[Rfam]
RNA: tRNA
Nucleotides: 074
Base pairs, nucleotide, nucleotide: 001073002072003071004070005069006068007067010026011025012024028044029043030042031041032040050066051065052064053063054062
Number, partner (000 for none) and nucleotide at each position: 001073g002072c003071c004070c005069c006068c007067g008000u009000a010026g011025c012024c013000c014000a015000a016000c017000a018000g019000g020000c021000a022000g023000a024012g025011g026010c027000g028044a029043g030042c031041c032040c033000c034000u035000u036000a037000a038000a039000a040032g041031g042030g043029u044028u045000u046000g047000a048000g049000u050066g051065c052064c053063g054062g055000u056000u057000c058000g059000a060000a061000u062054c063053c064052g065051g066050u067007c068006g069005g070004g071003g072002g073001c074000a